Shown here is a 96-nucleotide RNA sequence from Oleidesulfovibrio alaskensis, a member of the family "Bacterial small signal recognition particle RNA". It is annotated as a non-coding RNA gene. Rfam's curators write: The signal recognition particle (SRP) is a universally conserved ribonucleoprotein involved in the co-translational targeting of proteins to membranes. The match comes from Rfam's covariance-model search (59 bits). The family's consensus secondary structure is taken from published work. Gene Ontology terms of the family: signal recognition particle, plasma membrane targeting and SRP-dependent cotranslational protein targeting to membrane, signal sequence recognition. The source organism's lineage runs through Bacteria, Pseudomonadati, Desulfovibrionia, Desulfovibrionales and Oleidesulfovibrio alaskensis.

RNA sequence: UCAAGAGAGCCGGGCGGCGGAAGCGCUGCCAAUCCGGUCAGGCCCGAGAGGGAGCAGCCGUAACAGUUGUUUUCGGGUGCCCGGCUCCCUAAAGGG
Numbered sequence: 001u002c003a004a005g006a007g008a009g010c011c012g013g014g015c016g017g018c019g020g021a022a023g024c025g026c027u028g029c030c031a032a033u034c035c036g037g038u039c040a041g042g043c044c045c046g047a048g049a050g051g052g053a054g055c056a057g058c059c060g061u062a063a064c065a066g067u068u069g070u071u072u073u074c075g076g077g078u079g080c081c082c083g084g085c086u087c088c089c090u091a092a093a094g095g096g
Base pairs, nucleotide, nucleotide: 004090005089007087008086009085010084011083012082013081014080015077018075019074020073021072022071025067026066027065028064035060036059037058038057043052044051045050